Shown here is a 34-nucleotide RNA sequence from Paenibacillus sp. Y412MC10, a member of the family "L31-Firmicutes ribosomal protein leader". The sequence is in the family's curated seed alignment. Its Rfam clan is "Ribosomal Protein L31 Leader clan". The base pairs follow the family's consensus structure, which is taken from published work. The family's RNA type in Rfam is cis-regulatory leader. On this family, see Eckert and Weinberg, BMC Microbiol 2020: "Discovery of 20 novel ribosomal leader candidates in bacteria and archaea".

RNA sequence: CUCUGGGUCCGCAUGAGGCUCAGGGCGGAAAGAG
Numbered sequence: 001c002u003c004u005g006g007g008u009c010c011g012c013a014u015g016a017g018g019c020u021c022a023g024g025g026c027g028g029a030a031a032g033a034g
Stems, first nucleotide, its partner, number of pairs: 001025008